[Rfam]
RNA sequence: AAAGCAGGCCACUCUAUCGCUUUAUGCUGAACUUGUUUUAGCGCCUUCCGAUUGAGAUGGGUCCCGAAUCAAGUUCGGGGUGAAGAGGAAAGUCCGGACACCACAGUGCGGCAUAGCGGGUAACACCCGUCUCCCGGUGUUACAUCGGGACGGACCAGUGCAACAGAAAGAAUGUACAGGUUAUGCUGUAGUGAAACCAGGUAAACUCUAUGCGGUGAAACGUCAUGUAAAUCGGUGUUUGAGGGCUGCACGUCCGAGCCGAAGGGUAGGCGGUAAGAGCUUUUGGGUAACUGAAAGCCUAGAUAAAUGAUAGGGAGACCCUGAAAUUGUUUCAGGGUAUACAGAAUCCGGCUUAUGGCCUGCUUAUUUA
Numbered sequence: 001a002a003a004g005c006a007g008g009c010c011a012c013u014c015u016a017u018c019g020c021u022u023u024a025u026g027c028u029g030a031a032c033u034u035g036u037u038u039u040a041g042c043g044c045c046u047u048c049c050g051a052u053u054g055a056g057a058u059g060g061g062u063c064c065c066g067a068a069u070c071a072a073g074u075u076c077g078g079g080g081u082g083a084a085g086a087g088g089a090a091a092g093u094c095c096g097g098a099c100a101c102c103a104c105a106g107u108g109c110g111g112c113a114u115a116g117c118g119g120g121u122a123a124c125a126c127c128c129g130u131c132u133c134c135c136g137g138u139g140u141u142a143c144a145u146c147g148g149g150a151c152g153g154a155c156c157a158g159u160g161c162a163a164c165a166g167a168a169a170g171a172a173u174g175u176a177c178a179g180g181u182u183a184u185g186c187u188g189u190a191g192u193g194a195a196a197c198c199a200g201g202u203a204a205a206c207u208c209u210a211u212g213c214g215g216u217g218a219a220a221c222g223u224c225a226u227g228u229a230a231a232u233c234g235g236u237g238u239u240u241g242a243g244g245g246c247u248g249c250a251c252g253u254c255c256g257a258g259c260c261g262a263a264g265g266g267u268a269g270g271c272g273g274u275a276a277g278a279g280c281u282u283u284u285g286g287g288u289a290a291c292u293g294a295a296a297g298c299c300u301a302g303a304u305a306a307a308u309g310a311u312a313g314g315g316a317g318a319c320c321c322u323g324a325a326a327u328u329g330u331u332u333c334a335g336g337g338u339a340u341a342c343a344g345a346a347u348c349c350g351g352c353u354u355a356u357g358g359c360c361u362g363c364u365u366a367u368u369u370a
Stems, first nucleotide, its partner, number of pairs: 002365010012315007020085006027078009090354003094351005099217004106251004111213005116130005131152001132150007153208002158206002160202002175190005221272004232262005243255004279298008